A member of the RNA family "Manganese Mn2+ riboswitch aptamer (yybP-ykoY)" from Simiduia aestuariiviva, 90 nucleotides long. This RNA was originally discovered in E. coli during a large scale screen and was named SraF. The family was later found to exist upstream of related families of protein genes in many bacteria, including the the yybP and ykoK genes in B. subtilis. The source organism's lineage runs through Bacteria, Pseudomonadati, Cellvibrionales, Cellvibrionaceae and Simiduia.
[Rfam]
RNA sequence: UAGGGGAGUAGCCCGCCGCCCUGCGGUGGUGUCGUCAACACACUUGCGCCGCAUGCGCAUGGCGACACCGCAGAUUCGAAGGAAUCUGUC
Numbered sequence: 001u002a003g004g005g006g007a008g009u010a011g012c013c014c015g016c017c018g019c020c021c022u023g024c025g026g027u028g029g030u031g032u033c034g035u036c037a038a039c040a041c042a043c044u045u046g047c048g049c050c051g052c053a054u055g056c057g058c059a060u061g062g063c064g065a066c067a068c069c070g071c072a073g074a075u076u077c078g079a080a081g082g083a084a085u086c087u088g089u090c
Stems, first nucleotide, its partner, number of pairs: 016026003028069010045059005070089007